RNA sequence: CCACAGCCAAUUAAAGCACCAGAUCCCUUCCUUCAGGGGCCUGGUAAUGACUGUGGAGAGCGGACUCAGUGGUAGUGGAUGUAGCCUGUUGCCUGUAUGCGUUUCCCAAAAAACAUCUUGGGUACGGUU
Numbered sequence: 001c002c003a004c005a006g007c008c009a010a011u012u013a014a015a016g017c018a019c020c021a022g023a024u025c026c027c028u029u030c031c032u033u034c035a036g037g038g039g040c041c042u043g044g045u046a047a048u049g050a051c052u053g054u055g056g057a058g059a060g061c062g063g064a065c066u067c068a069g070u071g072g073u074a075g076u077g078g079a080u081g082u083a084g085c086c087u088g089u090u091g092c093c094u095g096u097a098u099g100c101g102u103u104u105c106c107c108a109a110a111a112a113a114c115a116u117c118u119u120g121g122g123u124a125c126g127g128u129u
Stems, first nucleotide, its partner, number of pairs: 018045004024039004071117003083103003087099001